[Rfam]
Shown here is a 90-nucleotide RNA sequence from Streptomyces paludis, a member of the family "ZMP/ZTP riboswitch aptamer (pfl RNA motif)".
The organism belongs to Streptomyces, within Bacteria.
A search with the family's covariance model found it, with a score of 41 bits.

RNA sequence: GGGACGCGCGGCGACUGGCGCACGGGGAAGUGACCCCGGGGAAGCCGCGCGGGCCGAGCACACGGGGUGCCGCCCGCCUGGGCACCUACG
Numbered sequence: 001g002g003g004a005c006g007c008g009c010g011g012c013g014a015c016u017g018g019c020g021c022a023c024g025g026g027g028a029a030g031u032g033a034c035c036c037c038g039g040g041g042a043a044g045c046c047g048c049g050c051g052g053g054c055c056g057a058g059c060a061c062a063c064g065g066g067g068u069g070c071c072g073c074c075c076g077c078c079u080g081g082g083c084a085c086c087u088a089c090g
Base pairs, nucleotide, nucleotide: 005051006050007049008048009047010046011045012044015041016040017078018077019076020075024037025036026035027034067085068084069083070082071081